[Rfam]
RNA sequence: GGGGAACGAGAGUAGCACACCUCCACGCGGUGUUCCCUGGGCAACGGUGCAGUUCCCUGGAACUGCAACGGCUAAGAUGCUACU
Numbered sequence: 001g002g003g004g005a006a007c008g009a010g011a012g013u014a015g016c017a018c019a020c021c022u023c024c025a026c027g028c029g030g031u032g033u034u035c036c037c038u039g040g041g042c043a044a045c046g047g048u049g050c051a052g053u054u055c056c057c058u059g060g061a062a063c064u065g066c067a068a069c070g071g072c073u074a075a076g077a078u079g080c081u082a083c084u
Base pairs, nucleotide, nucleotide: 001038002037003036004035005034006033007032019031020030021029045070046069048067049066050065051064052063053062054061055060

The record is an 84-nucleotide RNA from Argiope bruennichi, which matches "HDV ribozyme from F. prausnitzii" in Rfam. NCBI's taxonomy places the organism under Eukaryota, Panarthropoda, Araneae, Araneidae, Argiope. Gene Ontology term of the family: catalytic activity. The family has 48 seed sequences and 3,803 matches in Rfam 15.1.